[Rfam]
RNA sequence: CUAUUACCAAAGCCUAUCUCUACCUUCACGUGGUGACCGCUGCGAGCUCUUUCUCAACGAAGAGCUGCAGACGGAGAAGG
Numbered sequence: 001c002u003a004u005u006a007c008c009a010a011a012g013c014c015u016a017u018c019u020c021u022a023c024c025u026u027c028a029c030g031u032g033g034u035g036a037c038c039g040c041u042g043c044g045a046g047c048u049c050u051u052u053c054u055c056a057a058c059g060a061a062g063a064g065c066u067g068c069a070g071a072c073g074g075a076g077a078a079g080g
Stems, first nucleotide, its partner, number of pairs: 013080003017076001019074002022034003045066007053059001

A member of the RNA family "drz-agam-1 ribozyme" from Hermetia illucens, 80 nucleotides long.
Rfam links the family to the GO term catalytic activity.
Lineage of the source: Eukaryota > Panarthropoda > Pterygota > Diptera > Hermetia.
A reference for the family is Webb et al. (2009), "Widespread occurrence of self-cleaving ribozymes", Science.
The match comes from Rfam's covariance-model search (38 bits).